c-di-GMP-II-GAG riboswitch aptamer: an 87-nucleotide RNA sequence from Dactylosporangium siamense. Rfam links the family to the GO terms cyclic-di-GMP binding and regulation of gene expression. Clan: c-di-GMP_II riboswitch clan.
[Rfam]
RNA sequence: CUGGCGGGGAAAGCGAUGAUCCACCGGGCGUCCUUGGUCGCCAAUCGGUCCGGUGGGGAGCCAGUGGCGAAACCGGACCCGUCUCAG
Numbered sequence: 001c002u003g004g005c006g007g008g009g010a011a012a013g014c015g016a017u018g019a020u021c022c023a024c025c026g027g028g029c030g031u032c033c034u035u036g037g038u039c040g041c042c043a044a045u046c047g048g049u050c051c052g053g054u055g056g057g058g059a060g061c062c063a064g065u066g067g068c069g070a071a072a073c074c075g076g077a078c079c080c081g082u083c084u085c086a087g
Base pairs, nucleotide, nucleotide: 003084004083007080008079009078013061014060021056022055023054024053025052026051027050028049036074037073038070039069040068041067042066
The family's consensus secondary structure is taken from published work. A search with the family's covariance model found it, with a score of 48 bits.